[Rfam]
Rfam assigns this 245-nucleotide RNA from Aspergillus alliaceus to the family "Small nucleolar RNA snR191". Rfam classes the family as an H/ACA-box small nucleolar RNA. A reference for the family is Badis et al. (2003), "A snoRNA that guides the two most conserved pseudouridine modifications within rRNA confers a growth advantage in yeast", RNA. The match comes from Rfam's covariance-model search (53 bits). Taxonomically the source falls in Aspergillus subgen. Circumdati (Eukaryota, Opisthokonta, Eurotiomycetidae, Eurotiales).
RNA sequence: UGCCAUUGCUAAGUCAAGGCUUCUUCUAGCGACCACGUGUCGUUACCUUCUCAAUGGAAGUAUGUCUGUUACAGCUUUGGUAGAUUGACGCUGGCCCGCGCCGACCUUCAUUCUGAAGCUAGGCUGACGGUUUUCGUUUUGAAAGCCUGUUGUAAGGGCCGAGCUGUGCUCCGUUUUUGAGUUGAGUCCUGCUCCAGUCAUCUGGCUGCUUCAUAGCAGAUCUCUUAGUAACGUUACACACAUUC
Numbered sequence: 001u002g003c004c005a006u007u008g009c010u011a012a013g014u015c016a017a018g019g020c021u022u023c024u025u026c027u028a029g030c031g032a033c034c035a036c037g038u039g040u041c042g043u044u045a046c047c048u049u050c051u052c053a054a055u056g057g058a059a060g061u062a063u064g065u066c067u068g069u070u071a072c073a074g075c076u077u078u079g080g081u082a083g084a085u086u087g088a089c090g091c092u093g094g095c096c097c098g099c100g101c102c103g104a105c106c107u108u109c110a111u112u113c114u115g116a117a118g119c120u121a122g123g124c125u126g127a128c129g130g131u132u133u134u135c136g137u138u139u140u141g142a143a144a145g146c147c148u149g150u151u152g153u154a155a156g157g158g159c160c161g162a163g164c165u166g167u168g169c170u171c172c173g174u175u176u177u178u179g180a181g182u183u184g185a186g187u188c189c190u191g192c193u194c195c196a197g198u199c200a201u202c203u204g205g206c207u208g209c210u211u212c213a214u215a216g217c218a219g220a221u222c223u224c225u226u227a228g229u230a231a232c233g234u235u236a237c238a239c240a241c242a243u244u245c
Stems, first nucleotide, its partner, number of pairs: 003080003017067004023060005029043005091161001094159004100124003104120001106118004130146007166239003172233003184224003190218004195208004